[Rfam]
RNA sequence: GAUCCACAUGAAGGCGGCGGCAACGCCCCCCUUCAUACCUCCCUGUUGGACUUCGGCCGAGCUUAGUGCUCGGCCUUUUUU
Numbered sequence: 001g002a003u004c005c006a007c008a009u010g011a012a013g014g015c016g017g018c019g020g021c022a023a024c025g026c027c028c029c030c031c032u033u034c035a036u037a038c039c040u041c042c043c044u045g046u047u048g049g050a051c052u053u054c055g056g057c058c059g060a061g062c063u064u065a066g067u068g069c070u071c072g073g074c075c076u077u078u079u080u081u
Base pairs, nucleotide, nucleotide: 008036009035010034011033012032013031014030055075056074057073058072059071060070061069062068
A member of the RNA family "Singlet oxygen resistance RNA X" from Rhodobacterales bacterium Y4I, 81 nucleotides long.
Gene Ontology term of the family: response to photooxidative stress.
By type it is a small RNA.
On this family, see Berghoff et al., Mol Microbiol 2009: "Photooxidative stress-induced and abundant small RNAs in Rhodobacter sphaeroides".
Pairs were carried over by alignment from the consensus structure.
The family has 8 seed sequences and 528 matches in Rfam 15.1.
About the family: SorX (RSs2461)like SorY is a singlet oxygen induced sRNA that counteracts oxidative stress by targeting mRNA for a transporter in Rhodobacter. It also has an impact on resistance against organic hydroperoxides.
The organism belongs to Rhodobacterales, within Bacteria.